A member of the RNA family "mir-24 microRNA precursor family" from Clupea harengus, 70 nucleotides long. This family represents the microRNA (miRNA) mir-24 family. miRNAs are transcribed as ~70nt precursors (modelled here) and subsequently processed by the Dicer enzyme to give a ~22nt product. In this case the mature sequence comes from the 3' arm of the precursor. The extents of the hairpin precursors are not generally known and are estimated based on hairpin prediction. The base pairs follow the family's consensus structure, which was predicted with RNAalifold. On this family, see Lagos-Quintana et al., Science 2001: "Identification of novel genes coding for small expressed RNAs". A search with the family's covariance model found it, with a score of 67 bits. Rfam links the family to the GO terms RISC complex and miRNA-mediated post-transcriptional gene silencing. Lineage of the source: Eukaryota > Actinopterygii > Neopterygii > Clupeocephala > Clupea.

RNA sequence: UCCUCCUGUGCCUUCUGAACUGGAAUCAGUGUGUUUGUGAAGUACUGGCUCAGUCCAGUGGGAACAGGAG
Numbered sequence: 001u002c003c004u005c006c007u008g009u010g011c012c013u014u015c016u017g018a019a020c021u022g023g024a025a026u027c028a029g030u031g032u033g034u035u036u037g038u039g040a041a042g043u044a045c046u047g048g049c050u051c052a053g054u055c056c057a058g059u060g061g062g063a064a065c066a067g068g069a070g
Base pairs, nucleotide, nucleotide: 003070004069005068006067008065009064011062012061013060015058016057017056019054020053021052022051023050026048027047028046029045030044